Annotation: The record is a 99-nucleotide RNA from Mustela putorius, which matches "Y RNA" in Rfam. A search with the family's covariance model found it, with a score of 44 bits. Rfam classes the family as a non-coding RNA gene. The organism belongs to Mustela putorius, within Eukaryota. The family's consensus secondary structure is taken from published work.
RNA sequence: GCUUGGUCUGAAGAUAGUGAAUUGUCUCAAUUGAUUGUUUUACAGAUAGAACUCCUUGUUCUACUAUUUCUCCAUUCUCACUGCUGCACUUGACUUAAA
Numbered sequence: 001g002c003u004u005g006g007u008c009u010g011a012a013g014a015u016a017g018u019g020a021a022u023u024g025u026c027u028c029a030a031u032u033g034a035u036u037g038u039u040u041u042a043c044a045g046a047u048a049g050a051a052c053u054c055c056u057u058g059u060u061c062u063a064c065u066a067u068u069u070c071u072c073c074a075u076u077c078u079c080a081c082u083g084c085u086g087c088a089c090u091u092g093a094c095u096u097a098a099a
Base pairs, nucleotide, nucleotide: 003097005095006094007093008092010091011090015086016082017081018080019079020078029065031063033061034060